[Rfam]
RNA sequence: AGGAUUAUGAGUAUAUGGGGAUGCUUGCACGACAUUCAAUGUCACAGAGGUGAGAAAAAUAAAAGGGGAAACAUUUUCCCCUUUUUUAAGAUAA
Numbered sequence: 001a002g003g004a005u006u007a008u009g010a011g012u013a014u015a016u017g018g019g020g021a022u023g024c025u026u027g028c029a030c031g032a033c034a035u036u037c038a039a040u041g042u043c044a045c046a047g048a049g050g051u052g053a054g055a056a057a058a059a060u061a062a063a064a065g066g067g068g069a070a071a072c073a074u075u076u077u078c079c080c081c082u083u084u085u086u087u088a089a090g091a092u093a094a
Stems, first nucleotide, its partner, number of pairs: 008038001010036003016032001018030001020028001061085011
RNA: sraA
Organism: Plautia stali symbiont